[Rfam]
RNA sequence: UGACCCUUCUUAAGCCGAGGGUCACCUAGCCAACUGACGUUGUUAGUGAACCUUUGUUGUUCACGAUAUAUAUAGGCCAAUUGCGAAUAUUGCGAUUGGCCAUUUUUUU
Numbered sequence: 001u002g003a004c005c006c007u008u009c010u011u012a013a014g015c016c017g018a019g020g021g022u023c024a025c026c027u028a029g030c031c032a033a034c035u036g037a038c039g040u041u042g043u044u045a046g047u048g049a050a051c052c053u054u055u056g057u058u059g060u061u062c063a064c065g066a067u068a069u070a071u072a073u074a075g076g077c078c079a080a081u082u083g084c085g086a087a088u089a090u091u092g093c094g095a096u097u098g099g100c101c102a103u104u105u106u107u108u109u
Stems, first nucleotide, its partner, number of pairs: 001024006040075004046064006052056001077099008
RNA: Qrr RNA
Organism: Vibrio splendidus